[Rfam]
RNA sequence: AGCAAAGGUUCAUCGCUGUCUUUUAACUAGGCAGAGGAAAGUCCAGACUCGCACAACCUGAGAUGGUAGUAGUUUUUAUGCUAGGUUAAAGAAUAAACCUAGGCUAAAGUAAUUUAGACGGCUGACGAAUAUGCUAAGGAUUUAUAUCUAUGCAUUAGUAGUCUAUAAAAGUGCAAAAGAGACGAGCUUAAUUAGAAAUGAUUAAGGUGGAACGUUGUAAACCCCAUAAGCGAGCAACCCAAAUUAAUGGUAGGGGCAGGCAAACUAGGAAUUUAACGAUGUUUGUUGGUAGCAAUACAAGAUAAAUGAUGAACAAAACAGAAUCUGGCUUACGUUU
Numbered sequence: 001a002g003c004a005a006a007g008g009u010u011c012a013u014c015g016c017u018g019u020c021u022u023u024u025a026a027c028u029a030g031g032c033a034g035a036g037g038a039a040a041g042u043c044c045a046g047a048c049u050c051g052c053a054c055a056a057c058c059u060g061a062g063a064u065g066g067u068a069g070u071a072g073u074u075u076u077u078a079u080g081c082u083a084g085g086u087u088a089a090a091g092a093a094u095a096a097a098c099c100u101a102g103g104c105u106a107a108a109g110u111a112a113u114u115u116a117g118a119c120g121g122c123u124g125a126c127g128a129a130u131a132u133g134c135u136a137a138g139g140a141u142u143u144a145u146a147u148c149u150a151u152g153c154a155u156u157a158g159u160a161g162u163c164u165a166u167a168a169a170a171g172u173g174c175a176a177a178a179g180a181g182a183c184g185a186g187c188u189u190a191a192u193u194a195g196a197a198a199u200g201a202u203u204a205a206g207g208u209g210g211a212a213c214g215u216u217g218u219a220a221a222c223c224c225c226a227u228a229a230g231c232g233a234g235c236a237a238c239c240c241a242a243a244u245u246a247a248u249g250g251u252a253g254g255g256g257c258a259g260g261c262a263a264a265c266u267a268g269g270a271a272u273u274u275a276a277c278g279a280u281g282u283u284u285g286u287u288g289g290u291a292g293c294a295a296u297a298c299a300a301g302a303u304a305a306a307u308g309a310u311g312a313a314c315a316a317a318a319c320a321g322a323a324u325c326u327g328g329c330u331u332a333c334g335u336u337u
Stems, first nucleotide, its partner, number of pairs: 004337003007333001008314007016034006039331003043328005048234005053070002056067003076229005081102006103119001104117005120224002124163003131155004138149003171222002173218003187206008238255003259287007289298003
RNA: Bacterial RNase P class B